Rfam assigns this 324-nucleotide sequence from Aspergillus alliaceus to the family "A. fumigatus sRNA Afu_309".
The literature on the family includes a 2008 paper in Nucleic Acids Res by Jochl et al., "Small ncRNA transcriptome analysis from Aspergillus fumigatus suggests a novel mechanism for regulation of protein synthesis".
[Rfam]
RNA sequence: UUCAACCGAACACACACGGAUCUGUGUCCAGAGAUCCUGAGUGUGGAAGCGCUUCUUCUUGAAGGAGUCUGUUACUGCAUCUCGGUUGAUUACUGGACAGUUCGACGACUUAAGGAGCCAUCUUCUUCUUGGAUGGUCUUUUAUUUCCGGUCGACAGAUCUCAGAUUAAAAGCCGACAUCGGGUGUUCACUCCGGUCUUGAGCUCCCAUCUUGGUGAUGCUCGGCUGGAGAGCCUGGUGUUCGGCGGCGUCAUAUUCCUACUCCCUUCACCGAUUUGGCCGUCGGCCCAUGAGGUUAGGGAAAAACCAUGACUAGCCAACAUAA
Numbered sequence: 001u002u003c004a005a006c007c008g009a010a011c012a013c014a015c016a017c018g019g020a021u022c023u024g025u026g027u028c029c030a031g032a033g034a035u036c037c038u039g040a041g042u043g044u045g046g047a048a049g050c051g052c053u054u055c056u057u058c059u060u061g062a063a064g065g066a067g068u069c070u071g072u073u074a075c076u077g078c079a080u081c082u083c084g085g086u087u088g089a090u091u092a093c094u095g096g097a098c099a100g101u102u103c104g105a106c107g108a109c110u111u112a113a114g115g116a117g118c119c120a121u122c123u124u125c126u127u128c129u130u131g132g133a134u135g136g137u138c139u140u141u142u143a144u145u146u147c148c149g150g151u152c153g154a155c156a157g158a159u160c161u162c163a164g165a166u167u168a169a170a171a172g173c174c175g176a177c178a179u180c181g182g183g184u185g186u187u188c189a190c191u192c193c194g195g196u197c198u199u200g201a202g203c204u205c206c207c208a209u210c211u212u213g214g215u216g217a218u219g220c221u222c223g224g225c226u227g228g229a230g231a232g233c234c235u236g237g238u239g240u241u242c243g244g245c246g247g248c249g250u251c252a253u254a255u256u257c258c259u260a261c262u263c264c265c266u267u268c269a270c271c272g273a274u275u276u277g278g279c280c281g282u283c284g285g286c287c288c289a290u291g292a293g294g295u296u297a298g299g300g301a302a303a304a305a306c307c308a309u310g311a312c313u314a315g316c317c318a319a320c321a322u323a324a
Stems, first nucleotide, its partner, number of pairs: 018161008026098006033091004037085005042079002045075001047073002051069001052067001054065004106153005113141003117137003172241001174239001178238006194226004200222004204217002206214002246317003249312005262301005269295003277287004